Annotation
Shown here is an 80-nucleotide RNA sequence from Hucho hucho, a member of the family "mir-130 microRNA precursor family". For this family Rfam cites "Identification of tissue-specific microRNAs from mouse" (Lagos-Quintana et al., Curr Biol, 2002). Gene Ontology terms of the family: RISC complex and miRNA-mediated post-transcriptional gene silencing.
RNA sequence: AAUGGUACCCUAUUCCCUACAUAGUGCACUAUGAGCCCUGGUCACAAGUAGUGCACUAUAUAGGGAAUAGGGUGCCAUUU
Number, nucleotide and partner (000 for none) at each position: 001a080002a079003u000004g000005g075006u074007a073008c072009c071010c070011u000012a068013u067014u066015c065016c064017c063018u062019a061020c000021a000022u058023a057024g056025u055026g054027c053028a052029c051030u050031a000032u000033g000034a000035g000036c000037c000038c000039u000040g000041g000042u000043c000044a000045c000046a000047a000048g000049u000050a030051g029052u028053g027054c026055a025056c024057u023058a022059u000060a000061u019062a018063g017064g016065g015066a014067a013068u012069a000070g010071g009072g008073u007074g006075c005076c000077a000078u000079u002080u001